[Rfam]
U12 minor spliceosomal RNA: a 152-nucleotide RNA from Taxus chinensis. It scores 93 bits against the family's covariance model. The family is grouped with related families in Rfam's "U2 clan". Taxonomically the source falls in Taxus (Eukaryota, Embryophyta, Tracheophyta, Cupressales). The pairing is the family consensus, mapped onto this sequence. For this family Rfam cites "Pre-mRNA splicing: the discovery of a new spliceosome doubles the challenge" (Tarn and Steitz, Trends Biochem Sci, 1997).
RNA sequence: UUGCCUUAAACUAAUGAGUAAGGAAAACAAAGCGAGGGGUGGGAACCGCUCGCAGCGCCAAUAAAGUAGUGCGCAAGAAUUUAUGGGGGGGAAAUAGGCUGGCCUAGUGUUGACGCUGCUUACUUUGCAGAACUCACUCGAGCGGGCCUCCC
Numbered sequence: 001u002u003g004c005c006u007u008a009a010a011c012u013a014a015u016g017a018g019u020a021a022g023g024a025a026a027a028c029a030a031a032g033c034g035a036g037g038g039g040u041g042g043g044a045a046c047c048g049c050u051c052g053c054a055g056c057g058c059c060a061a062u063a064a065a066g067u068a069g070u071g072c073g074c075a076a077g078a079a080u081u082u083a084u085g086g087g088g089g090g091g092a093a094a095u096a097g098g099c100u101g102g103c104c105u106a107g108u109g110u111u112g113a114c115g116c117u118g119c120u121u122a123c124u125u126u127g128c129a130g131a132a133c134u135c136a137c138u139c140g141a142g143c144g145g146g147c148c149u150c151c152c
Stems, first nucleotide, its partner, number of pairs: 004023005032053005038047002055074004090152002096149005102143001104140001107137003116130004